[Rfam]
RNA sequence: UGCGCAGGGCGUGUUUCAGCACGAUGUUGCCAAAGCUGACACCCUUGAGCCGCGCGGUUCGGAUGUAUUGCGUGGUCAUCACCUCGGUCAUCGACGCACGGGUCAUGCGGGCGAUGUACCCCAUGCCGUAGAGCGCGAUGGUCAGAACCGGCAGGGUGAAAUUCUCGAAGGUAAUAUCC
Numbered sequence: 001u002g003c004g005c006a007g008g009g010c011g012u013g014u015u016u017c018a019g020c021a022c023g024a025u026g027u028u029g030c031c032a033a034a035g036c037u038g039a040c041a042c043c044c045u046u047g048a049g050c051c052g053c054g055c056g057g058u059u060c061g062g063a064u065g066u067a068u069u070g071c072g073u074g075g076u077c078a079u080c081a082c083c084u085c086g087g088u089c090a091u092c093g094a095c096g097c098a099c100g101g102g103u104c105a106u107g108c109g110g111g112c113g114a115u116g117u118a119c120c121c122c123a124u125g126c127c128g129u130a131g132a133g134c135g136c137g138a139u140g141g142u143c144a145g146a147a148c149c150g151g152c153a154g155g156g157u158g159a160a161a162u163u164c165u166c167g168a169a170g171g172u173a174a175u176a177u178c179c
Stems, first nucleotide, its partner, number of pairs: 005140002009136004014131002016128001019126003028123002040111001042109001046105003050101003054097001055075001057073002060070003082096001084094003145179001147177001151172002154165003
Dot-bracket structure: ....((..((((.(((..(((......((..........(.(...(((.(((.((.((.(((.....))).)).)......(.(((.....))).)).))).)))...).)..........))))).).)).))))..))....(.(...((.(((......))).....))....).)
The record is a 179-nucleotide RNA sequence from Pseudosulfitobacter pseudonitzschiae, which matches "Ruegeria cis52 sRNA" in Rfam.
Gene Ontology term of the family: regulation of gene expression.
The family's RNA type in Rfam is small RNA.
Pairs were carried over by alignment from the consensus structure, which was predicted with RNAfold.